[Rfam]
The record is a 133-nucleotide sequence from Yersinia pseudotuberculosis, which matches "RtT RNA" in Rfam.
Rfam's curators put it in the seed alignment.
A reference for the family is Bosl and Kersten (1991), "A novel RNA product of the tyrT operon of Escherichia coli", Nucleic Acids Res.
Rfam 15.1 lists 651 matches to the family in 204 species.
Taxonomically the source falls in Yersinia pseudotuberculosis (Bacteria, Enterobacterales, Yersinia, Yersinia pseudotuberculosis complex).
Pairs were carried over by alignment from the consensus structure, which is taken from published work.
The family's RNA type in Rfam is cis-regulatory element.
This family represents a bacterial cis-regulatory element known as RtT RNA. The exact function of RtT is unknown although it is thought that it may be involved in changing the cellular response in relation to amino acid starvation.
RNA sequence: UAGCUCAGUUGGUAGAGCAGUUGACUUUUAAUCAAUUGGUCGCAGGUUCGAGCCGAGCAGAGCGAGACAACAACGCGCCAGCGUUGACCCGAAGGGCGAGUCCAGAGGACGAGUCAUCCCGCACGACCCACCA
Numbered sequence: 001u002a003g004c005u006c007a008g009u010u011g012g013u014a015g016a017g018c019a020g021u022u023g024a025c026u027u028u029u030a031a032u033c034a035a036u037u038g039g040u041c042g043c044a045g046g047u048u049c050g051a052g053c054c055g056a057g058c059a060g061a062g063c064g065a066g067a068c069a070a071c072a073a074c075g076c077g078c079c080a081g082c083g084u085u086g087a088c089c090c091g092a093a094g095g096g097c098g099a100g101u102c103c104a105g106a107g108g109a110c111g112a113g114u115c116a117u118c119c120c121g122c123a124c125g126a127c128c129c130a131c132c133a
Stems, first nucleotide, its partner, number of pairs: 015124001017122002020119001022116001037098002040096002047093004054064002071086006